RNA sequence: CCGGGCGCCAUCCGGGUCCGGUGGGACAUAGAGAGCGUCGGCUCCUUACCGGCGCUUCUCAUGCCCAGAUUGCUUCGCAAGGAGGAUUUGGAGAUGAGAA
Numbered sequence: 001c002c003g004g005g006c007g008c009c010a011u012c013c014g015g016g017u018c019c020g021g022u023g024g025g026a027c028a029u030a031g032a033g034a035g036c037g038u039c040g041g042c043u044c045c046u047u048a049c050c051g052g053c054g055c056u057u058c059u060c061a062u063g064c065c066c067a068g069a070u071u072g073c074u075u076c077g078c079a080a081g082g083a084g085g086a087u088u089u090g091g092a093g094a095u096g097a098g099a100a
Stems, first nucleotide, its partner, number of pairs: 001021006008015002032057001034056008058098005065091007073084003
RNA: Repression of heat shock gene expression (ROSE) element